The record is a 437-nucleotide part of an RNA from Conglomerata obtusa, which matches "Microsporidia small subunit ribosomal RNA" in Rfam. Rfam 15.1 lists 1,035 matches to the family in 436 species. Gene Ontology terms of the family: ribosome and structural constituent of ribosome. Lineage of the source: Eukaryota > Opisthokonta > Fungi > Microsporidia > Conglomerata. For this family Rfam cites "Crystal structure of the ribosome at 5.5 A resolution" (Yusupov et al., Science, 2001).
[Rfam]
RNA sequence: CACCAGGUUGAUUCUGCCUGACGUGGACGCUUGCCUCAAGGAUUAAGCCAUGCAAGCCAGCGAAGGUAACGGAGCGGCGAACGGCUCAGUAGGACAGGGACAUCUAACCAUUGUACAGGAUAACCGCGGUAAUCUGUGGCUAAUACUGUAGUGGGUGGGACCCUGGCCUAUCAGCUUGGCGGUACGGUAAGUGCGUACCGUGGCGACGACGGGUAGCGGGGAAUCGGGGUUUGAUUCCGGAGAGGGAGCCUGAGAGAUGGCUGCCACGUCCAAGGACGGCAGCAGGCGCGGAACUUACCCACUUGGAGGACCAGAGGUAGUGACGAGGCGUUUUGAAUGAGAACAGUGUAAAAAGCUGAUUGAAAGCUACUGGAGGGCAAGUCUGGUGCCAGCAGCCGCGGUAAUUCCAGCUCCAGGAGCGUCUGUGUGUGUUGCUG
Numbered sequence: 001c002a003c004c005a006g007g008u009u010g011a012u013u014c015u016g017c018c019u020g021a022c023g024u025g026g027a028c029g030c031u032u033g034c035c036u037c038a039a040g041g042a043u044u045a046a047g048c049c050a051u052g053c054a055a056g057c058c059a060g061c062g063a064a065g066g067u068a069a070c071g072g073a074g075c076g077g078c079g080a081a082c083g084g085c086u087c088a089g090u091a092g093g094a095c096a097g098g099g100a101c102a103u104c105u106a107a108c109c110a111u112u113g114u115a116c117a118g119g120a121u122a123a124c125c126g127c128g129g130u131a132a133u134c135u136g137u138g139g140c141u142a143a144u145a146c147u148g149u150a151g152u153g154g155g156u157g158g159g160a161c162c163c164u165g166g167c168c169u170a171u172c173a174g175c176u177u178g179g180c181g182g183u184a185c186g187g188u189a190a191g192u193g194c195g196u197a198c199c200g201u202g203g204c205g206a207c208g209a210c211g212g213g214u215a216g217c218g219g220g221g222a223a224u225c226g227g228g229g230u231u232u233g234a235u236u237c238c239g240g241a242g243a244g245g246g247a248g249c250c251u252g253a254g255a256g257a258u259g260g261c262u263g264c265c266a267c268g269u270c271c272a273a274g275g276a277c278g279g280c281a282g283c284a285g286g287c288g289c290g291g292a293a294c295u296u297a298c299c300c301a302c303u304u305g306g307a308g309g310a311c312c313a314g315a316g317g318u319a320g321u322g323a324c325g326a327g328g329c330g331u332u333u334u335g336a337a338u339g340a341g342a343a344c345a346g347u348g349u350a351a352a353a354a355g356c357u358g359a360u361u362g363a364a365a366g367c368u369a370c371u372g373g374a375g376g377g378c379a380a381g382u383c384u385g386g387u388g389c390c391a392g393c394a395g396c397c398g399c400g401g402u403a404a405u406u407c408c409a410g411c412u413c414c415a416g417g418a419g420c421g422u423c424u425g426u427g428u429g430u431g432u433u434g435c436u437g
Stems, first nucleotide, its partner, number of pairs: 004020005022427010033329005040321001041289001047287003051284003056078002060075002065070001085242003095165005101159001103158002108154006116148003124139006167213003174204003179201008217239004221232004244265002247262003267278004295319001297318003303314004341361002344358003370416006383410004392399002